[Rfam]
RNA: TPP riboswitch aptamer (THI element)
Organism: Sulfitobacter marinus
RNA sequence: UUGGGUACCUCGGGGGGCACUGUUGUGCUGAGAUUGCGAAAGCUGACCCGUAGAACCUGAACCGGUUAACACCGGCGGAGGGAAGGUCUGGACAUGCUUC
Number, nucleotide and partner (000 for none) at each position: 001u000002u000003g000004g000005g000006u000007a087008c086009c085010u084011c050012g049013g048014g047015g000016g044017g028018c027019a026020c025021u000022g000023u000024u000025g020026u019027g018028c017029u000030g000031a000032g000033a000034u000035u000036g043037c042038g000039a000040a000041a000042g037043c036044u016045g000046a000047c014048c013049c012050g011051u000052a000053g000054a000055a000056c081057c080058u079059g000060a000061a000062c075063c074064g073065g072066u000067u000068a000069a000070c000071a000072c065073c064074g063075g062076c000077g000078g000079a058080g057081g056082g000083a000084a010085g009086g008087u007088c000089u000090g000091g000092a000093c000094a000095u000096g000097c000098u000099u000100c000